[Rfam]
The record is a 69-nucleotide RNA, which matches "Actino-pnp RNA" in Rfam. By type it is a cis-regulatory element. A search with the family's covariance model found it, with a score of 48 bits.
RNA sequence: GUCGGCCUCGGUGGUGGCCGACGAAAAUUGUCUGGGAACAUAUUUUCGUCGGCCACCAUCGAGGCCGAC
Numbered sequence: 001g002u003c004g005g006c007c008u009c010g011g012u013g014g015u016g017g018c019c020g021a022c023g024a025a026a027a028u029u030g031u032c033u034g035g036g037a038a039c040a041u042a043u044u045u046u047c048g049u050c051g052g053c054c055a056c057c058a059u060c061g062a063g064g065c066c067g068a069c
Base pairs, nucleotide, nucleotide: 001069002068003067004066005065006064007063008062009061010060011059012058016054017053018052019051020050021049022048023047024046025045026044027043028042